[Rfam]
RNA sequence: AGCUCUCGCAGUGGCAGUAUCAUAGCCAAUGAGGUUUAGCUGAGGCGCGAUUAUUUCUAAUUGAAACUUUAAAUUCAGUAGCAUGAUUUACUAGCUUUUCUUUCACUUCUGCAUUAUGUUUAUGUUAUAUAUUUAUA
Numbered sequence: 001a002g003c004u005c006u007c008g009c010a011g012u013g014g015c016a017g018u019a020u021c022a023u024a025g026c027c028a029a030u031g032a033g034g035u036u037u038a039g040c041u042g043a044g045g046c047g048c049g050a051u052u053a054u055u056u057c058u059a060a061u062u063g064a065a066a067c068u069u070u071a072a073a074u075u076c077a078g079u080a081g082c083a084u085g086a087u088u089u090a091c092u093a094g095c096u097u098u099u100c101u102u103u104c105a106c107u108u109c110u111g112c113a114u115u116a117u118g119u120u121u122a123u124g125u126u127a128u129a130u131a132u133u134u135a136u137a
Stems, first nucleotide, its partner, number of pairs: 019051003023047001025046003033041003083136003086132002089129002092127004